This 92-nucleotide sequence from Streptomyces sporangiiformans belongs to the Rfam family "sodF sRNA". On this family, see Kim et al., Nucleic Acids Res 2014: "Inverse regulation of Fe- and Ni-containing SOD genes by a Fur family regulator Nur through small RNA processed from 3'UTR of the sodF mRNA". By type it is a small RNA. The match comes from Rfam's covariance-model search (93 bits).
RNA sequence: GCGCCCCGCCUCGUGAUCGUCUUCUCACCUUUCACGCCGGCGGGCGGAAUGAAGGAAAACCCCCGCGAGGACGUGACUCGCGGGGGUUUUCC
Numbered sequence: 001g002c003g004c005c006c007c008g009c010c011u012c013g014u015g016a017u018c019g020u021c022u023u024c025u026c027a028c029c030u031u032u033c034a035c036g037c038c039g040g041c042g043g044g045c046g047g048a049a050u051g052a053a054g055g056a057a058a059a060c061c062c063c064c065g066c067g068a069g070g071a072c073g074u075g076a077c078u079c080g081c082g083g084g085g086g087u088u089u090u091c092c
Base pairs, nucleotide, nucleotide: 002046003045005044006043007042008041009040010039013035014034015033016032019029054092055091056090057089058088059087060086061085062084063083064082065081066080067079068078069077